[Rfam]
The record is a 70-nucleotide RNA from Pseudomonas pohangensis, which matches "narK RNA" in Rfam.
RNA sequence: GGCCCGCUCUUUGCUCUGUCCAUAUACGUGGCAGCCAAAGGCGGUUGUCCGACUUCGGCAAAGGCGUCGC
Dot-bracket structure: .............................(((((((......))))))).....................
The family's consensus secondary structure is taken from published work.
The organism belongs to Pseudomonas, within Bacteria.